This 114-nucleotide RNA from Desulfosarcina widdelii belongs to the Rfam family "c-di-GMP-I riboswitch aptamer".
RNA sequence: AUCGCCAAAAGCCAAACCCAUUGCGAAAUCGGGACGGAAAACCACGGGUCUCUACAAUCUCGUUGCGUCGAUAUUUCUGAAUUUGGGUUAAUCUGAGACAGCCGGGCUGCCGAG
Numbered sequence: 001a002u003c004g005c006c007a008a009a010a011g012c013c014a015a016a017c018c019c020a021u022u023g024c025g026a027a028a029u030c031g032g033g034a035c036g037g038a039a040a041a042c043c044a045c046g047g048g049u050c051u052c053u054a055c056a057a058u059c060u061c062g063u064u065g066c067g068u069c070g071a072u073a074u075u076u077c078u079g080a081a082u083u084u085g086g087g088u089u090a091a092u093c094u095g096a097g098a099c100a101g102c103c104g105g106g107c108u109g110c111c112g113a114g
Stems, first nucleotide, its partner, number of pairs: 012037002017032002020029003040108001042106002045104003048099005